msiK RNA: a 59-nucleotide RNA from Bifidobacterium psychraerophilum. By type it is a cis-regulatory element. A search with the family's covariance model found it, with a score of 64 bits. Rfam 15.1 lists 1,374 matches to the family in 1,364 species.
Nucleotides: 059
Stems, first nucleotide, its partner, number of pairs: 009051002012048004027044006
Number, partner (000 for none) and nucleotide at each position: 001000c002000a003000g004000u005000g006000a007000a008000a009051c010050c011000c012048u013047u014046c015045a016000c017000u018000a019000c020000g021000g022000a023000u024000c025000g026000u027044u028043c029042g030041g031040c032039a033000c034000g035000u036000a037000c038000c039032u040031g041030c042029c043028g044027a045015u046014g047013a048012a049000a050010g051009g052000a053000u054000g055000a056000a057000c058000a059000a